[Rfam]
RNA: tRNA
Organism: Pythium oligandrum
RNA sequence: GCUUCGAUAGCUCAGUUGGGAGAGCGUCAGACUGAAGAUCUGAGUCCUGGUUCGAUCCCGGGUCGAAGCA
Numbered sequence: 001g002c003u004u005c006g007a008u009a010g011c012u013c014a015g016u017u018g019g020g021a022g023a024g025c026g027u028c029a030g031a032c033u034g035a036a037g038a039u040c041u042g043a044g045u046c047c048u049g050g051u052u053c054g055a056u057c058c059c060g061g062g063u064c065g066a067a068g069c070a
Stems, first nucleotide, its partner, number of pairs: 001069007010025004027043005046062005